[Rfam]
RNA sequence: CAAAUGGACGACUAGGGUUCCGGUCCGCAUCGAUGCAAACACAAGCAUCCGGUGUGCGACGCUGGUCCGAGAGUUGUCGACCUCGAUGAGGUUACACGGCGGGAUAAAAGCCCGGGAGAG
Numbered sequence: 001c002a003a004a005u006g007g008a009c010g011a012c013u014a015g016g017g018u019u020c021c022g023g024u025c026c027g028c029a030u031c032g033a034u035g036c037a038a039a040c041a042c043a044a045g046c047a048u049c050c051g052g053u054g055u056g057c058g059a060c061g062c063u064g065g066u067c068c069g070a071g072a073g074u075u076g077u078c079g080a081c082c083u084c085g086a087u088g089a090g091g092u093u094a095c096a097c098g099g100c101g102g103g104a105u106a107a108a109a110g111c112c113c114g115g116g117a118g119a120g
Stems, first nucleotide, its partner, number of pairs: 007078006015068002020065002022062001023060003079093006095115001097118001101113003
Guanidine-I riboswitch aptamer: a 120-nucleotide RNA from Paraburkholderia steynii. Gene Ontology term of the family: regulation of gene expression. The source organism's lineage runs through Bacteria, Pseudomonadati, Betaproteobacteria, Burkholderiaceae and Paraburkholderia. The pairing is the family consensus, mapped onto this sequence.